[Rfam]
RNA sequence: UGGUAGAUGCACCCUGAUGUCUGACUCCUGAGCCUGAUUAAGGCUUAGGAGUUUUUUUU
Numbered sequence: 001u002g003g004u005a006g007a008u009g010c011a012c013c014c015u016g017a018u019g020u021c022u023g024a025c026u027c028c029u030g031a032g033c034c035u036g037a038u039u040a041a042g043g044c045u046u047a048g049g050a051g052u053u054u055u056u057u058u059u
Base pairs, nucleotide, nucleotide: 002013003012004011025051026050027049028048029047030046031045032044033043034042035041
Description: A member of the RNA family "Nitrogen stress-induced RNA 1" from Leptolyngbya ectocarpi, 59 nucleotides long. The organism belongs to Leptolyngbya ectocarpi, within Bacteria. The family's RNA type in Rfam is small RNA. The pairing is the family consensus, mapped onto this sequence.